[Rfam]
RNA: IS605-orfB-I RNA
RNA sequence: ACCGCUUACAAAUGUACAGAACGCAAGACAGUUCAGCAUUUCCCUAAGUGGUUUAGAUUGAUUAGAAGUACAAUCAACAACACGGUUUGUGUAGUUAUGCUGAAAAUCGUUGAGAUUGUAUGGAAUAGGUUAAUCGUAAGACCUUAAGUUGAGAAACUUUAAAAUUAAUCUCAAAGUAAAUUACUUUAGAGUUACGGUGGC
Numbered sequence: 001a002c003c004g005c006u007u008a009c010a011a012a013u014g015u016a017c018a019g020a021a022c023g024c025a026a027g028a029c030a031g032u033u034c035a036g037c038a039u040u041u042c043c044c045u046a047a048g049u050g051g052u053u054u055a056g057a058u059u060g061a062u063u064a065g066a067a068g069u070a071c072a073a074u075c076a077a078c079a080a081c082a083c084g085g086u087u088u089g090u091g092u093a094g095u096u097a098u099g100c101u102g103a104a105a106a107u108c109g110u111u112g113a114g115a116u117u118g119u120a121u122g123g124a125a126u127a128g129g130u131u132a133a134u135c136g137u138a139a140g141a142c143c144u145u146a147a148g149u150u151g152a153g154a155a156a157c158u159u160u161a162a163a164a165u166u167a168a169u170c171u172c173a174a175a176g177u178a179a180a181u182u183a184c185u186u187u188a189g190a191g192u193u194a195c196g197g198u199g200g201c
Stems, first nucleotide, its partner, number of pairs: 001052008010041006019034004023029001068121008082110007093101002127144005133198006139165001146159005170191003173187006